[Rfam]
RNA sequence: UUGCAGCACCGGGCCCCUCUGGCGAUUGUUACCGGCUCUCUCGUGAUGUCGGAGCUGUAAU
Numbered sequence: 001u002u003g004c005a006g007c008a009c010c011g012g013g014c015c016c017c018u019c020u021g022g023c024g025a026u027u028g029u030u031a032c033c034g035g036c037u038c039u040c041u042c043g044u045g046a047u048g049u050c051g052g053a054g055c056u057g058u059a060a061u
Stems, first nucleotide, its partner, number of pairs: 006055002009052004022044004028038001
Dot-bracket structure: .....((.((((.........((((..(.........)..))))....)))).))......

Shown here is a 61-nucleotide sequence from Phyllobacterium zundukense, a member of the family "terC RNA". It is annotated as a cis-regulatory element. The base pairs follow the family's consensus structure, which is taken from published work. It scores 48 bits against the family's covariance model. The source organism's lineage runs through Bacteria, Pseudomonadota, Alphaproteobacteria, Phyllobacteriaceae and Phyllobacterium.